[Rfam]
RNA sequence: CCCCUUUCAAUUCGGGGUGGGCGCCUUAUAUGCGCUCCUGCCGGUCUCGUGCCGGCUAUGACGAUAAACUGUGGCGUGCAAUAGGCACAGCGGACCCGGGGGCGGUACCCGGCGGCUCCACCACCUCUCUCGCCUUGCGGGAUAGAUGACGGGGCCGAACUAGGAUCGACGUGUGUUGAAAAGCGUUGCUUUCGUCCGGGCUGAGUAACCCGUUAAAGGCUCAAAACUCACAAGUGCCAACGACAACGAAGCACUUGCUCUCGCUGCGUAACCUGACGGCCUAACGGCCAGAUCUUACAAAGCGAAAGCGCGGUUGGACCCGCCGGGCAACAGAAGGAUACCAGG
Numbered sequence: 001c002c003c004c005u006u007u008c009a010a011u012u013c014g015g016g017g018u019g020g021g022c023g024c025c026u027u028a029u030a031u032g033c034g035c036u037c038c039u040g041c042c043g044g045u046c047u048c049g050u051g052c053c054g055g056c057u058a059u060g061a062c063g064a065u066a067a068a069c070u071g072u073g074g075c076g077u078g079c080a081a082u083a084g085g086c087a088c089a090g091c092g093g094a095c096c097c098g099g100g101g102g103c104g105g106u107a108c109c110c111g112g113c114g115g116c117u118c119c120a121c122c123a124c125c126u127c128u129c130u131c132g133c134c135u136u137g138c139g140g141g142a143u144a145g146a147u148g149a150c151g152g153g154g155c156c157g158a159a160c161u162a163g164g165a166u167c168g169a170c171g172u173g174u175g176u177u178g179a180a181a182a183g184c185g186u187u188g189c190u191u192u193c194g195u196c197c198g199g200g201c202u203g204a205g206u207a208a209c210c211c212g213u214u215a216a217a218g219g220c221u222c223a224a225a226a227c228u229c230a231c232a233a234g235u236g237c238c239a240a241c242g243a244c245a246a247c248g249a250a251g252c253a254c255u256u257g258c259u260c261u262c263g264c265u266g267c268g269u270a271a272c273c274u275g276a277c278g279g280c281c282u283a284a285c286g287g288c289c290a291g292a293u294c295u296u297a298c299a300a301a302g303c304g305a306a307a308g309c310g311c312g313g314u315u316g317g318a319c320c321c322g323c324c325g326g327g328c329a330a331c332a333g334a335a336g337g338a339u340a341c342c343a344g345g
Stems, first nucleotide, its partner, number of pairs: 040056005060196005071189007086175003090172003096112005113157007197212004202223003311325004316342002321337001

Shown here is a 345-nucleotide RNA sequence from Novosphingobium nitrogenifigens, a member of the family "Alphaproteobacteria transfer-messenger RNA".
Taxonomically the source falls in Novosphingobium nitrogenifigens (Bacteria, Pseudomonadati, Pseudomonadota, Novosphingobium).
Bacterial tmRNA, also known as 10Sa RNA or SsrA, is named for its dual tRNA and mRNA-like properties. Its role is to liberate the mRNA from a stalled ribosome. To accomplish this part of the tmRNA is used as a reading frame that ends in a translation stop signal.
A reference for the family is Felden et al. (1997), "Probing the structure of the Escherichia coli 10Sa RNA (tmRNA)", RNA.